[Rfam]
RNA: Purine riboswitch aptamer
Organism: Anaerobacillus alkalidiazotrophicus
RNA sequence: AAAAGAAUACGUGAAUUUCCUCAUAUAAUAUUGGGAAUAUGGCCCAGAAGUUUCUACCUAAUGACCGUAAAUCAUUGGACUAUGAAGGAAAGCAAAUAUACU
Numbered sequence: 001a002a003a004a005g006a007a008u009a010c011g012u013g014a015a016u017u018u019c020c021u022c023a024u025a026u027a028a029u030a031u032u033g034g035g036a037a038u039a040u041g042g043c044c045c046a047g048a049a050g051u052u053u054c055u056a057c058c059u060a061a062u063g064a065c066c067g068u069a070a071a072u073c074a075u076u077g078g079a080c081u082a083u084g085a086a087g088g089a090a091a092g093c094a095a096a097u098a099u100a101c102u
Stems, first nucleotide, its partner, number of pairs: 018088002021085005029049001031047005058078007